[Rfam]
Background
Rfam assigns this 102-nucleotide RNA from Salsuginibacillus halophilus to the family "Purine riboswitch aptamer". Taxonomically the source falls in Salsuginibacillus (Bacteria, Bacillati, Bacilli, Caryophanales). The base pairs follow the family's consensus structure, which is taken from published work. The match comes from Rfam's covariance-model search (57 bits).
RNA sequence: UAAGUGAACAGAGUCAAAGUUCGUAUAACCUGGACAAUACGGGUCCGGGGUGUCUAUCAGGAACCGUAACAUUUCCUGGCUACGAGCUUUCCGCAACCUAGG
Numbered sequence: 001u002a003a004g005u006g007a008a009c010a011g012a013g014u015c016a017a018a019g020u021u022c023g024u025a026u027a028a029c030c031u032g033g034a035c036a037a038u039a040c041g042g043g044u045c046c047g048g049g050g051u052g053u054c055u056a057u058c059a060g061g062a063a064c065c066g067u068a069a070c071a072u073u074u075c076c077u078g079g080c081u082a083c084g085a086g087c088u089u090u091c092c093g094c095a096a097c098c099u100a101g102g
Stems, first nucleotide, its partner, number of pairs: 018088008029049007058078006